[Rfam]
RNA: t44 RNA
RNA sequence: UAACAGAAAGCCUUAAAUCACACAUGCACCGUCACAUGGUCCCGGGUGCCUUUGAACGCAACGUCUGAGUUUAGGUCAAACGUCGUGUCUCUGGUCGGAUCCAUGGGGUGUGUGGAGGCCUAAC
Numbered sequence: 001u002a003a004c005a006g007a008a009a010g011c012c013u014u015a016a017a018u019c020a021c022a023c024a025u026g027c028a029c030c031g032u033c034a035c036a037u038g039g040u041c042c043c044g045g046g047u048g049c050c051u052u053u054g055a056a057c058g059c060a061a062c063g064u065c066u067g068a069g070u071u072u073a074g075g076u077c078a079a080a081c082g083u084c085g086u087g088u089c090u091c092u093g094g095u096c097g098g099a100u101c102c103a104u105g106g107g108g109u110g111u112g113u114g115g116a117g118g119c120c121u122a123a124c
Base pairs, nucleotide, nucleotide: 023114024113025112026111027110028109029108030107035105036104037103038102039101040099041098042097048095049094050093